[Rfam]
RNA: transfer-messenger RNA
Organism: Desulfotomaculum nigrificans
RNA sequence: GGGGGCGAAAUGGCUUCGACGGGGGAAGCGGUGGCAAGAGGAGCGAGCCGGGAUCUCACCAGCCCGUUAAACGGUGAACAAACAAUAAUUGCCAACGAAGAAUACGCUUUAGCUGCUUAAUUCAGCUAACCUCCUACCCGCUGCGCCCGCGGUGCGGGAUUAGGGGGUCACACUAGCGGGACGCUCUAUAGCCUGAUUCUCGGAGGGCUAUAGCUAAGACUGCCGAGAUAGUGCCAAAGCAGCCUGGUUAUGGGCGGCGGCGGUGCGAAAUCUAAAACAUAACCUACGCUCGUAGAGCCUGUUGUGGUCGUUCCUUCGGACGGUGGGUUCAACUCCCCCCGCCUCCACCA
Numbered sequence: 001g002g003g004g005g006c007g008a009a010a011u012g013g014c015u016u017c018g019a020c021g022g023g024g025g026a027a028g029c030g031g032u033g034g035c036a037a038g039a040g041g042a043g044c045g046a047g048c049c050g051g052g053a054u055c056u057c058a059c060c061a062g063c064c065c066g067u068u069a070a071a072c073g074g075u076g077a078a079c080a081a082a083c084a085a086u087a088a089u090u091g092c093c094a095a096c097g098a099a100g101a102a103u104a105c106g107c108u109u110u111a112g113c114u115g116c117u118u119a120a121u122u123c124a125g126c127u128a129a130c131c132u133c134c135u136a137c138c139c140g141c142u143g144c145g146c147c148c149g150c151g152g153u154g155c156g157g158g159a160u161u162a163g164g165g166g167g168u169c170a171c172a173c174u175a176g177c178g179g180g181a182c183g184c185u186c187u188a189u190a191g192c193c194u195g196a197u198u199c200u201c202g203g204a205g206g207g208c209u210a211u212a213g214c215u216a217a218g219a220c221u222g223c224c225g226a227g228a229u230a231g232u233g234c235c236a237a238a239g240c241a242g243c244c245u246g247g248u249u250a251u252g253g254g255c256g257g258c259g260g261c262g263g264u265g266c267g268a269a270a271u272c273u274a275a276a277a278c279a280u281a282a283c284c285u286a287c288g289c290u291c292g293u294a295g296a297g298c299c300u301g302u303u304g305u306g307g308u309c310g311u312u313c314c315u316u317c318g319g320a321c322g323g324u325g326g327g328u329u330c331a332a333c334u335c336c337c338c339c340c341g342c343c344u345c346c347a348c349c350a
Base pairs, nucleotide, nucleotide: 001346002345003344004343005342006341007340020318021317022316023315024314025313026312027311032307034305035304036303037302039300040299041298044292045291046290047289048288049066050065051064052063056077057076058075059074060073109129110128111127112126113125114124115123130167131166132165133164134163135162137158138157139156146180147179148178149177150176186213187212188211189210190209191208192207193206196229197228198227200225231266232265233264234263235262239258240257242255243254244253246284247283248282249281251277322339323338325337326336327335